RNA: MIR396 microRNA precursor family
RNA sequence: GGCCAUGCUCUCCACAGGCUUUCUUGAACUGUGAACUCGUGUGUGCAUGCUCCUCAUAUAUUGUUCUAGAUCCCAUGCAUGAUGCAUAUCGAUCGAUCUGAUCUGAAUUAGGUCAUCGAUGCGCAUCUGGAUCCCCAUCUUGUUGAUAGUUCAAGAAAGUCCUUGGAAAACAUGGUGC
Numbered sequence: 001g002g003c004c005a006u007g008c009u010c011u012c013c014a015c016a017g018g019c020u021u022u023c024u025u026g027a028a029c030u031g032u033g034a035a036c037u038c039g040u041g042u043g044u045g046c047a048u049g050c051u052c053c054u055c056a057u058a059u060a061u062u063g064u065u066c067u068a069g070a071u072c073c074c075a076u077g078c079a080u081g082a083u084g085c086a087u088a089u090c091g092a093u094c095g096a097u098c099u100g101a102u103c104u105g106a107a108u109u110a111g112g113u114c115a116u117c118g119a120u121g122c123g124c125a126u127c128u129g130g131a132u133c134c135c136c137a138u139c140u141u142g143u144u145g146a147u148a149g150u151u152c153a154a155g156a157a158a159g160u161c162c163u164u165g166g167a168a169a170a171c172a173u174g175g176u177g178c
Stems, first nucleotide, its partner, number of pairs: 003175005013165002017161006024154004029149004